A member of the RNA family "Caenorhabditis sRNA ceN56" from Caenorhabditis angaria, 130 nucleotides long. Taxonomically the source falls in Caenorhabditis (Eukaryota, Opisthokonta, Bilateria, Rhabditida). It scores 70 bits against the family's covariance model. Rfam classes the family as a small RNA.
[Rfam]
RNA sequence: UGCCCGAUGAGAUAAAAAUUUAUCUGAAGCCUUCCUAUCGGAAGAAACCUGAGACACCUUUGGUUUAGGUGUUGAGGAUGGUCUCGAUAAUGAUAGGUACGUAUGAUACUGAUUAUGAGAGAUGAGGGUU
Numbered sequence: 001u002g003c004c005c006g007a008u009g010a011g012a013u014a015a016a017a018a019u020u021u022a023u024c025u026g027a028a029g030c031c032u033u034c035c036u037a038u039c040g041g042a043a044g045a046a047a048c049c050u051g052a053g054a055c056a057c058c059u060u061u062g063g064u065u066u067a068g069g070u071g072u073u074g075a076g077g078a079u080g081g082u083c084u085c086g087a088u089a090a091u092g093a094u095a096g097g098u099a100c101g102u103a104u105g106a107u108a109c110u111g112a113u114u115a116u117g118a119g120a121g122a123u124g125a126g127g128g129u130u
Stems, first nucleotide, its partner, number of pairs: 002129004034097006044085002047082002049077002053073003057069003102117006